[Rfam]
RNA sequence: GCUUGAUCUCUGUAUUUGUUUCUAUUUUGAACAUUUGCCUGCUACCUUGGCAUAACAUCAAUAAGGUACAAACAUCGCAAAAAGUCAUCAUAAGGUGGGUUUUAGUACGUAGGCGCUGUAGAACUUAAUUGUUCUGAUAGAGCAGCGAGUCGUGCAUGCUAGUCUAACAUUUCUUGCUACCUAGUAUCUUUAGAAGAUUUCCCUCCCUUAGCGGUC
Numbered sequence: 001g002c003u004u005g006a007u008c009u010c011u012g013u014a015u016u017u018g019u020u021u022c023u024a025u026u027u028u029g030a031a032c033a034u035u036u037g038c039c040u041g042c043u044a045c046c047u048u049g050g051c052a053u054a055a056c057a058u059c060a061a062u063a064a065g066g067u068a069c070a071a072a073c074a075u076c077g078c079a080a081a082a083a084g085u086c087a088u089c090a091u092a093a094g095g096u097g098g099g100u101u102u103u104a105g106u107a108c109g110u111a112g113g114c115g116c117u118g119u120a121g122a123a124c125u126u127a128a129u130u131g132u133u134c135u136g137a138u139a140g141a142g143c144a145g146c147g148a149g150u151c152g153u154g155c156a157u158g159c160u161a162g163u164c165u166a167a168c169a170u171u172u173c174u175u176g177c178u179a180c181c182u183a184g185u186a187u188c189u190u191u192a193g194a195a196g197a198u199u200u201c202c203c204u205c206c207c208u209u210a211g212c213g214g215u216c
Base pairs, nucleotide, nucleotide: 043068044067045066046065047064048063074215075214076213077212078211091210092209093208094207095206097203098202099201105155106154107153108152109151114147115146116145117144118143119142120135121134122133123132124131157186158185159184160183161182162181
Dot-bracket structure: ..........................................((((((..............)))))).....(((((............(((((.(((.....(((((....(((((((((((......)))))......))))))...))))).((((((..................))))))..............)))..)))))))))).